[Rfam]
RNA sequence: CUCUUAUCAAGAGCAGGCGGAGGGAUGAGCCCUAUGAAGCCCGGCAACCGGCUUACUUUUAGCACGGUGCUAAUUCUUACAGCAGUUCAUGCUGAAAGAUAAGAA
Numbered sequence: 001c002u003c004u005u006a007u008c009a010a011g012a013g014c015a016g017g018c019g020g021a022g023g024g025a026u027g028a029g030c031c032c033u034a035u036g037a038a039g040c041c042c043g044g045c046a047a048c049c050g051g052c053u054u055a056c057u058u059u060u061a062g063c064a065c066g067g068u069g070c071u072a073a074u075u076c077u078u079a080c081a082g083c084a085g086u087u088c089a090u091g092c093u094g095a096a097a098g099a100u101a102a103g104a105a
Base pairs, nucleotide, nucleotide: 002104003103004102005101006100007099008098013042016041017040018039022032023031024030026079027078028077029076043071044070045069046068048067049066051063052062053061075097080094081093082092083091084090

This 105-nucleotide RNA from Bacillus sp. FJAT-27231 belongs to the Rfam family "SAM riboswitch aptamer (S box leader)". NCBI's taxonomy places the organism under Bacteria, Bacillati, Bacilli, Bacillaceae, Bacillus.